[Rfam]
RNA sequence: UUCACCGUGAGGUGGAAUCUGAAGGAAGCCAGAGGCAAAAUCCCGAACUGACGAACAGAAACCAUAUCAGGCUGAUUUAGAGCGGAUGAGUUUGCUAUACAAAACAAAGUCCAAUACUACCCAAACUCUAAACAGUAAAUAUGGCAGCUACAUGGGAGGAAGGUUGUUGCU
Numbered sequence: 001u002u003c004a005c006c007g008u009g010a011g012g013u014g015g016a017a018u019c020u021g022a023a024g025g026a027a028g029c030c031a032g033a034g035g036c037a038a039a040a041u042c043c044c045g046a047a048c049u050g051a052c053g054a055a056c057a058g059a060a061a062c063c064a065u066a067u068c069a070g071g072c073u074g075a076u077u078u079a080g081a082g083c084g085g086a087u088g089a090g091u092u093u094g095c096u097a098u099a100c101a102a103a104a105c106a107a108a109g110u111c112c113a114a115u116a117c118u119a120c121c122c123a124a125a126c127u128c129u130a131a132a133c134a135g136u137a138a139a140u141a142u143g144g145c146a147g148c149u150a151c152a153u154g155g156g157a158g159g160a161a162g163g164u165u166g167u168u169g170c171u
Stems, first nucleotide, its partner, number of pairs: 001016006028171001030169003035164002041157005046149001048147003062144005071136003076132007084112004090105004
RNA: Group II catalytic intron D1-D4-3